[Rfam]
RNA sequence: AAGGUCUGUCACUGGAUCUCUCCCAUCCCCUGGAGUGAUCUCCGGAACGAAGGCCCCUCCCCAGGCCUAGUUCCCUGGCCCCGCUGACCCCCCCCUGGUCGGUGGGGCUUUUUA
Numbered sequence: 001a002a003g004g005u006c007u008g009u010c011a012c013u014g015g016a017u018c019u020c021u022c023c024c025a026u027c028c029c030c031u032g033g034a035g036u037g038a039u040c041u042c043c044g045g046a047a048c049g050a051a052g053g054c055c056c057c058u059c060c061c062c063a064g065g066c067c068u069a070g071u072u073c074c075c076u077g078g079c080c081c082c083g084c085u086g087a088c089c090c091c092c093c094c095c096u097g098g099u100c101g102g103u104g105g106g107g108c109u110u111u112u113u114a
Base pairs, nucleotide, nucleotide: 003013004012005011014041015040016039017038018037020035021034022033023032044074045073046072047071048070050068052067053066054065055064077109078108079107080106081105082104083103084102086100087099088098089097
The family of this 114-nucleotide RNA from Pseudoxanthomonas sp. CF125 is "Xanthomonadaceae sRNA sX13". The source organism's lineage runs through Bacteria, Pseudomonadati, Lysobacterales, Lysobacteraceae and Pseudoxanthomonas. The family's RNA type in Rfam is small RNA. The family's consensus secondary structure was predicted with CMfinder. On this family, see Schmidtke et al., Nucleic Acids Res 2011: "Genome-wide transcriptome analysis of the plant pathogen Xanthomonas identifies sRNAs with putative virulence functions".